[Rfam]
RNA sequence: GUAGAUGCUCAUUCCACCUCUUAUGUUUGCGCAAGCUUCAUAAACCUGGGAAUGAUGCAGAGCCACUUUACGGUACCUGUUGUCCAGCCAGCCAAUAUCGCUAACGCCUUAUUGGAUCUAUCGGGCAAUACGUUGAGUCGGGUACCAACCGGUUGUCUUAGCCGACCUGAAAAUUUGCACCUGUCCAUGGACAGGUGUUUUUUU
Number, nucleotide and partner (000 for none) at each position: 001g063002u062003a000004g000005a000006u059007g058008c057009u055010c054011a053012u052013u000014c000015c050016a000017c049018c000019u042020c000021u000022u000023a000024u000025g000026u000027u035028u000029g000030c000031g000032c000033a000034a000035g027036c000037u000038u000039c000040a000041u000042a019043a000044a000045c000046c000047u000048g000049g017050g015051a000052a012053u011054g010055a009056u000057g008058c007059a006060g000061a000062g002063c001064c000065a000066c000067u000068u000069u000070a000071c000072g146073g145074u144075a143076c142077c141078u140079g000080u000081u000082g126083u125084c124085c123086a000087g000088c000089c000090a000091g000092c000093c000094a113095a112096u111097a110098u000099c000100g000101c000102u000103a000104a000105c000106g000107c000108c000109u000110u097111a096112u095113u094114g000115g000116a000117u000118c000119u000120a000121u000122c000123g085124g084125g083126c082127a000128a000129u000130a000131c000132g000133u000134u000135g000136a000137g000138u000139c000140g078141g077142g076143u075144a074145c073146c072147a000148a000149c000150c000151g000152g000153u000154u000155g166156u165157c164158u000159u000160a000161g000162c000163c000164g157165a156166c155167c000168u000169g000170a000171a000172a000173a000174u000175u000176u000177g198178c197179a196180c195181c194182u193183g192184u191185c190186c000187a000188u000189g000190g185191a184192c183193a182194g181195g180196u179197g178198u177199u000200u000201u000202u000203u000204u000